Rfam assigns this 133-nucleotide sequence to the family "Small nucleolar RNA SNORA42/SNORA80 family". It is one of the family's seed sequences. The base pairs follow the family's consensus structure, which was predicted with RNAalifold. Rfam describes the family as follows. The members of this family belong to the H/ACA class of snoRNAs that guide the sites of modification of uridines to pseudouridines. Rfam 15.1 lists 1,535 matches to the family in 183 species.
[Rfam]
RNA sequence: GCAUGGAUUUGGAUUUAUGACAGGCUCAUCCCCGUGGCCUCUCAUAGUGUCCCGUGCUAGAGCAAACUGGCUCCUAACCAUUGCCCAGCCUUGGUGCAUGUAGGCUGCUGGCACUGAAGUGGGUCACACAAUG
Numbered sequence: 001g002c003a004u005g006g007a008u009u010u011g012g013a014u015u016u017a018u019g020a021c022a023g024g025c026u027c028a029u030c031c032c033c034g035u036g037g038c039c040u041c042u043c044a045u046a047g048u049g050u051c052c053c054g055u056g057c058u059a060g061a062g063c064a065a066a067c068u069g070g071c072u073c074c075u076a077a078c079c080a081u082u083g084c085c086c087a088g089c090c091u092u093g094g095u096g097c098a099u100g101u102a103g104g105c106u107g108c109u110g111g112c113a114c115u116g117a118a119g120u121g122g123g124u125c126a127c128a129c130a131a132u133g
Base pairs, nucleotide, nucleotide: 001057002056003055004054005052006051007050008049015047016046017045018044019043020042022040023039024038025037026036068126069125070124071123072122073121079116080115084111085110086107087106088105089104090103091102